[Rfam]
RNA sequence: GUGGGCUAUGGCGAUGUGGCGCCCAAGACCUAUCCGGGCAUGUUUGUUGGUGCACUGUGCGCCCUAGCUGGCGUGUUGACCAUAGCCCUACCCGUACCUGUUAUCGUUAGCAAC
Numbered sequence: 001g002u003g004g005g006c007u008a009u010g011g012c013g014a015u016g017u018g019g020c021g022c023c024c025a026a027g028a029c030c031u032a033u034c035c036g037g038g039c040a041u042g043u044u045u046g047u048u049g050g051u052g053c054a055c056u057g058u059g060c061g062c063c064c065u066a067g068c069u070g071g072c073g074u075g076u077u078g079a080c081c082a083u084a085g086c087c088c089u090a091c092c093c094g095u096a097c098c099u100g101u102u103a104u105c106g107u108u109a110g111c112a113a114c
Stems, first nucleotide, its partner, number of pairs: 001114002004111001008107004013102004018097001021095002037077004049063003
About this RNA: This 114-nucleotide RNA sequence from Drosophila mojavensis belongs to the Rfam family "Potassium channel RNA editing signal". From the family's description: This family represents a group of sequences related to the human potassium channel Kv1.1 hairpin element which directs the efficient modification of an adenosine to inosine by an adenosine deaminase acting on RNA (ADAR). The family's RNA type in Rfam is cis-regulatory element. On this family, see Bhalla et al., Nat Struct Mol Biol 2004: "Control of human potassium channel inactivation by editing of a small mRNA hairpin". NCBI's taxonomy places the organism under Eukaryota, Pancrustacea, Altocrustacea, Endopterygota, mojavensis species complex. It scores 92 bits against the family's covariance model.